Background
A member of the RNA family "epsC RNA" from Bacillus mesophilum, 108 nucleotides long. By type it is a cis-regulatory element. Pairs were carried over by alignment from the consensus structure, which is taken from published work.
RNA sequence: UGGUGAUGUCUCCUGACCACUAUCAAUGGAGGCACUCGGCUGCGCUGUGGGUGGGAACCUUAGACAUUUUUUGUCGGUGGUGUGGUGUGAGGUGGGGUUGGAUGCCCU
Numbered sequence: 001u002g003g004u005g006a007u008g009u010c011u012c013c014u015g016a017c018c019a020c021u022a023u024c025a026a027u028g029g030a031g032g033c034a035c036u037c038g039g040c041u042g043c044g045c046u047g048u049g050g051g052u053g054g055g056a057a058c059c060u061u062a063g064a065c066a067u068u069u070u071u072u073g074u075c076g077g078u079g080g081u082g083u084g085g086u087g088u089g090a091g092g093u094g095g096g097g098u099u100g101g102a103u104g105c106c107c108u
Base pairs, nucleotide, nucleotide: 001019002018003017004016007034008033009032010031011030012029013028035091036090037089038088039086040085041084042083043082044081045080046079049060050059051058052057063075064074065073066072094108095107096106097105098104